[Rfam]
Source information
Rfam assigns this 80-nucleotide RNA sequence from Fukomys damarensis to the family "mir-194 microRNA precursor family". A search with the family's covariance model found it, with a score of 66 bits. On this family, see Lagos-Quintana et al., RNA 2003: "New microRNAs from mouse and human". Its family is annotated with RISC complex and miRNA-mediated post-transcriptional gene silencing in the Gene Ontology.
RNA sequence: AGGCGUCACCACGUGUAACAGCAACUCCACGUGGACCACACACAGCGUCCAGUGGAGACACUGUUACCUCUGGUGCGCAG
Number, nucleotide and partner (000 for none) at each position: 001a000002g000003g000004c000005g000006u000007c000008a000009c073010c072011a071012c000013g000014u000015g067016u066017a065018a064019c063020a062021g061022c000023a000024a000025c057026u056027c055028c054029a053030c052031g000032u051033g050034g049035a000036c000037c000038a000039c000040a000041c000042a000043c000044a000045g000046c000047g000048u000049c034050c033051a032052g030053u029054g028055g027056a026057g025058a000059c000060a000061c021062u020063g019064u018065u017066a016067c015068c000069u000070c000071u011072g010073g009074u000075g000076c000077g000078c000079a000080g000